[Rfam]
RNA sequence: UUGGCAAAUGACAACAAGCAAGACAGGGACUCUGCAGCGCUCCCGUGAAUGAUGCAUCCGUCUAGGGGAAUCUCUGAUGCUAA
Numbered sequence: 001u002u003g004g005c006a007a008a009u010g011a012c013a014a015c016a017a018g019c020a021a022g023a024c025a026g027g028g029a030c031u032c033u034g035c036a037g038c039g040c041u042c043c044c045g046u047g048a049a050u051g052a053u054g055c056a057u058c059c060g061u062c063u064a065g066g067g068g069a070a071u072c073u074c075u076g077a078u079g080c081u082a083a
Stems, first nucleotide, its partner, number of pairs: 002082005
Rfam assigns this 83-nucleotide sequence from Triticum urartu to the family "Small nucleolar RNA R44/J54/Z268 family".
Its Rfam clan is "SNORD74 clan".
Rfam links the family to the GO terms nucleolus and RNA processing.
The family's RNA type in Rfam is C/D-box small nucleolar RNA.